RNA sequence: GAAUACUAAAACAACGAAAGCCCUACCUCUCUUUCAUCCUUGCGGCUCCGAAGACCGCGCCAGUGUGAAUCAGUAAACAUCUU
Numbered sequence: 001g002a003a004u005a006c007u008a009a010a011a012c013a014a015c016g017a018a019a020g021c022c023c024u025a026c027c028u029c030u031c032u033u034u035c036a037u038c039c040u041u042g043c044g045g046c047u048c049c050g051a052a053g054a055c056c057g058c059g060c061c062a063g064u065g066u067g068a069a070u071c072a073g074u075a076a077a078c079a080u081c082u083u
Base pairs, nucleotide, nucleotide: 034068035067036066039063040062041059042058043057044056045055047053